[Rfam]
RNA sequence: AAGGGAGCAAUAAUCCCCCUCUUGAUAGAACAAGAGGGGGAUUAUUGCUCCCUUUUUA
Numbered sequence: 001a002a003g004g005g006a007g008c009a010a011u012a013a014u015c016c017c018c019c020u021c022u023u024g025a026u027a028g029a030a031c032a033a034g035a036g037g038g039g040g041a042u043u044a045u046u047g048c049u050c051c052c053u054u055u056u057u058a
Stems, first nucleotide, its partner, number of pairs: 001054013014040001019036006
Rfam assigns this 58-nucleotide sequence from Dipsacus asper to the family "Plastid-psbA-3 3UTR RNA". For this family Rfam cites "Retrograde signaling in plants: A critical review focusing on the GUN pathway and beyond" (Richter et al., Plant Commun, 2023). Rfam's curators write: Plastid psbA-3 is a non-coding RNA (ncRNA) present in plastids. It was identified in inverted repeat sequences in the 3 prime untranslate region (3UTR) of photosystem II quinone-binding protein (psbA). The family is grouped with related families in Rfam's "Plastid-psbA 3UTR RNA clan".